[Rfam]
RNA sequence: GCACGGAGAUGUAACUGGCGUAGCAUGGGAAACCAUGGGGGAGCAUCAUCGUGGAUAUCGCCGUACGCCUGGGCAGAGGUA
Numbered sequence: 001g002c003a004c005g006g007a008g009a010u011g012u013a014a015c016u017g018g019c020g021u022a023g024c025a026u027g028g029g030a031a032a033c034c035a036u037g038g039g040g041g042a043g044c045a046u047c048a049u050c051g052u053g054g055a056u057a058u059c060g061c062c063g064u065a066c067g068c069c070u071g072g073g074c075a076g077a078g079g080u081a
Base pairs, nucleotide, nucleotide: 003052004051005050006049008047009046010045011044012043015040016039017069018068019067020066021065025036026035027034028033058076060074061073062072

Description:
A member of the RNA family "ZMP/ZTP riboswitch aptamer (pfl RNA motif)" from Paenibacillus algicola, 81 nucleotides long. Taxonomically the source falls in Paenibacillus (Bacteria, Bacilli, Caryophanales, Paenibacillaceae). The family's consensus secondary structure is taken from published work.